[Rfam]
Nucleotides: 063
Stems, first nucleotide, its partner, number of pairs: 010025004016054006033044004
Number, partner (000 for none) and nucleotide at each position: 001000u002000a003000a004000g005000u006000u007000c008000a009000c010025g011024g012023c013022g014000a015000u016054g017053a018052c019051g020050u021049u022013c023012g024011c025010c026000u027000u028000u029000a030000a031000a032000u033044a034043u035042u036041c037000g038000u039000a040000a041036g042035g043034a044033u045000u046000g047000a048000u049021g050020a051019c052018g053017u054016c055000u056000g057000u058000u059000u060000a061000u062000u063000c

The record is a 63-nucleotide RNA from Lacticaseibacillus thailandensis, which matches "Fluoride riboswitch aptamer (crcB RNA motif)" in Rfam.
It scores 41 bits against the family's covariance model.
The organism belongs to Lacticaseibacillus thailandensis, within Bacteria.
Gene Ontology terms of the family: response to fluoride and positive regulation of gene expression.